[Rfam]
RNA: Small nucleolar RNA SNORA31
RNA sequence: AAGCAUCACCUGAUAGGCCGGGAGCGAUUCUGAUUCCUCUCUGGCUUGCAUUAAGAUGCCAGAGUGACUCUCCCUGCGCUUUCUGCCUGCCCCGAUUCCGUAGCAGCUCAGAUUGAAUAAGGGAGAACAUUU
Numbered sequence: 001a002a003g004c005a006u007c008a009c010c011u012g013a014u015a016g017g018c019c020g021g022g023a024g025c026g027a028u029u030c031u032g033a034u035u036c037c038u039c040u041c042u043g044g045c046u047u048g049c050a051u052u053a054a055g056a057u058g059c060c061a062g063a064g065u066g067a068c069u070c071u072c073c074c075u076g077c078g079c080u081u082u083c084u085g086c087c088u089g090c091c092c093c094g095a096u097u098c099c100g101u102a103g104c105a106g107c108u109c110a111g112a113u114u115g116a117a118u119a120a121g122g123g124a125g126a127a128c129a130u131u132u
Base pairs, nucleotide, nucleotide: 003059004058005057006056007055011050012049014048015047016046017045018044019043022039023038024037026035027034028033071124072123073122074121075120079115082112083111084110085109087106088105089104090103